[Rfam]
RNA: Mason-Pfizer monkey virus packaging signal
Organism: Nannospalax galili
RNA sequence: UGGUGCCCAAUGUGGGGCCUGGAUACUGGGGACAACGUGAGGGACAUGACAGAGGAAAAAGGGGUGCGCAUCCGUUCAAAUAAUUCGGAGACGCCGCGGGAGCCUGCCAUGACCGAGCCGAAGGUAAGUUGGUCGUUCAAUCAUGGGGCAAGAAUUAAGUCAACAUCAGAUUUAUGUGAUACAGUUAAGAGAAGCUCUACAGGCAAGAGGAGUAAAGGUUAAAACUGAGGAUUUAUUUCAUUUCUUUGAUUUUGUAAAGGACCUUUGUCCCU
Numbered sequence: 001u002g003g004u005g006c007c008c009a010a011u012g013u014g015g016g017g018c019c020u021g022g023a024u025a026c027u028g029g030g031g032a033c034a035a036c037g038u039g040a041g042g043g044a045c046a047u048g049a050c051a052g053a054g055g056a057a058a059a060a061g062g063g064g065u066g067c068g069c070a071u072c073c074g075u076u077c078a079a080a081u082a083a084u085u086c087g088g089a090g091a092c093g094c095c096g097c098g099g100g101a102g103c104c105u106g107c108c109a110u111g112a113c114c115g116a117g118c119c120g121a122a123g124g125u126a127a128g129u130u131g132g133u134c135g136u137u138c139a140a141u142c143a144u145g146g147g148g149c150a151a152g153a154a155u156u157a158a159g160u161c162a163a164c165a166u167c168a169g170a171u172u173u174a175u176g177u178g179a180u181a182c183a184g185u186u187a188a189g190a191g192a193a194g195c196u197c198u199a200c201a202g203g204c205a206a207g208a209g210g211a212g213u214a215a216a217g218g219u220u221a222a223a224a225c226u227g228a229g230g231a232u233u234u235a236u237u238u239c240a241u242u243u244c245u246u247u248g249a250u251u252u253u254g255u256a257a258a259g260g261a262c263c264u265u266u267g268u269c270c271c272u
Stems, first nucleotide, its partner, number of pairs: 006031003012026003036048003082125001084123001085121002092115002095111002098108002134148001136147004156199002159195002207247006216234005257272001259270004